[Rfam]
RNA sequence: GCCCCACUCAUUUGGGGAGUAGCCUUCCUUCAUCAAGAAGGAGGAUGUGUCAACAUACUCAGCAAGUUGCUGUGGCACAUCCGUCGAUCAGAUUGGC
Numbered sequence: 001g002c003c004c005c006a007c008u009c010a011u012u013u014g015g016g017g018a019g020u021a022g023c024c025u026u027c028c029u030u031c032a033u034c035a036a037g038a039a040g041g042a043g044g045a046u047g048u049g050u051c052a053a054c055a056u057a058c059u060c061a062g063c064a065a066g067u068u069g070c071u072g073u074g075g076c077a078c079a080u081c082c083g084u085c086g087a088u089c090a091g092a093u094u095g096g097c
Stems, first nucleotide, its partner, number of pairs: 027041003043082010060072005
Annotation:
The family of this 97-nucleotide RNA sequence from Serratia fonticola is "Manganese Mn2+ riboswitch aptamer (yybP-ykoY)". A search with the family's covariance model found it, with a score of 54 bits. From the family's description: This RNA was originally discovered in E. coli during a large scale screen and was named SraF. The family was later found to exist upstream of related families of protein genes in many bacteria, including the the yybP and ykoK genes in B. subtilis. For this family Rfam cites "Novel small RNA-encoding genes in the intergenic regions of Escherichia coli" (Argaman et al., Curr Biol, 2001).